Source information
The family of this 79-nucleotide sequence from Tupaia belangeri is "Small nucleolar RNA U2-19". Rfam classes the family as a C/D-box small nucleolar RNA. The family's consensus secondary structure is taken from published work. Its family is annotated with nucleolus and RNA processing in the Gene Ontology.
RNA sequence: GAUCAAUGAUGAAACUAGCCAAAUCUGAGCAUCGGAAGACCUUCCAGUCUACCUUACGCAUGAUCUCUUAGCUCUGAGA
Number, nucleotide and partner (000 for none) at each position: 001g000002a000003u000004c000005a000006a000007u000008g000009a000010u000011g000012a000013a000014a000015c000016u000017a000018g000019c000020c000021a000022a000023a000024u000025c000026u000027g000028a000029g059030c058031a000032u056033c000034g000035g000036a000037a050038g049039a048040c047041c000042u000043u000044c000045c000046a000047g040048u039049c038050u037051a000052c000053c000054u000055u000056a032057c000058g030059c029060a000061u000062g000063a000064u000065c000066u000067c000068u000069u000070a000071g000072c000073u000074c000075u000076g000077a000078g000079a000